Annotation: Shown here is a 77-nucleotide sequence from Methylomonas sp. LWB, a member of the family "Pseudomonas sRNA P9".
[Rfam]
RNA sequence: GCUAUUAUUACCACCAUUAAACCAAUGGUGGGUUAGCACGUUUACUUUCUACUGCAACCCGCCCUGAGGCGGGUUUU
Numbered sequence: 001g002c003u004a005u006u007a008u009u010a011c012c013a014c015c016a017u018u019a020a021a022c023c024a025a026u027g028g029u030g031g032g033u034u035a036g037c038a039c040g041u042u043u044a045c046u047u048u049c050u051a052c053u054g055c056a057a058c059c060c061g062c063c064c065u066g067a068g069g070c071g072g073g074u075u076u077u
Stems, first nucleotide, its partner, number of pairs: 011031007056075008
About the family: This small RNA (sRNA) was computationally identified in the genome of the opportunistic pathogen Pseudomonas aeruginosa and its expression verified by northern blot analysis. P9 appears to be conserved in several Pseudomonas species in addition to Bordetella spp. In both Pseudomonas and Bordetella spp P9 appears to be located upstream of a predicted threonine dehydratase gene.